A member of the RNA family "U5 spliceosomal RNA" from Tetrahymena pyriformis, 112 nucleotides long. For this family Rfam cites "The uRNA database" (Zwieb, Nucleic Acids Res, 1997). The source organism's lineage runs through Eukaryota, Sar, Oligohymenophorea, Tetrahymenidae and Tetrahymena. Rfam classes the family as a spliceosomal small nuclear RNA. Rfam describes the family as follows. U5 RNA is a component of both types of known spliceosome. The precise function of this molecule is unknown, though it is known that the 5' loop is required for splice site selection and p220 binding, and that both the 3' stem-loop and the Sm site are important for Sm protein binding and cap methylation.

RNA sequence: AUCACAGAACUCAGCUCAAUACGCUUUAAUUUUUCGCCUUUUACUAAAGAUUACCGUGGGCUGGGUUCUACAAUGUGAAUUAUUAAAAUUUUUGAGGAUUGUGUGAAUCCUA
Numbered sequence: 001a002u003c004a005c006a007g008a009a010c011u012c013a014g015c016u017c018a019a020u021a022c023g024c025u026u027u028a029a030u031u032u033u034u035c036g037c038c039u040u041u042u043a044c045u046a047a048a049g050a051u052u053a054c055c056g057u058g059g060g061c062u063g064g065g066u067u068c069u070a071c072a073a074u075g076u077g078a079a080u081u082a083u084u085a086a087a088a089u090u091u092u093u094g095a096g097g098a099u100u101g102u103g104u105g106a107a108u109c110c111u112a
Stems, first nucleotide, its partner, number of pairs: 003077004008067011027053008095111006